[Rfam]
RNA sequence: ACGAAAUGUGACAUCCUGUUUGCGAUAAACUCAGAUUUAUUUUAUAUUAUUUAUAUGUUAGGAAAACGGGGUGUUACAUUUUG
Numbered sequence: 001a002c003g004a005a006a007u008g009u010g011a012c013a014u015c016c017u018g019u020u021u022g023c024g025a026u027a028a029a030c031u032c033a034g035a036u037u038u039a040u041u042u043u044a045u046a047u048u049a050u051u052u053a054u055a056u057g058u059u060a061g062g063a064a065a066a067c068g069g070g071g072u073g074u075u076a077c078a079u080u081u082u083g
Base pairs, nucleotide, nucleotide: 002083003082004081005080006079007078008077009076010075011074012073013072014071015070016069017068018067019066020065
Shown here is an 83-nucleotide sequence from Medicago truncatula, a member of the family "MIR2617 microRNA precursor family". Lineage of the source: Eukaryota > Streptophyta > rosids > Papilionoideae > Medicago. It scores 47 bits against the family's covariance model. Its family is annotated with RISC complex and miRNA-mediated post-transcriptional gene silencing in the Gene Ontology.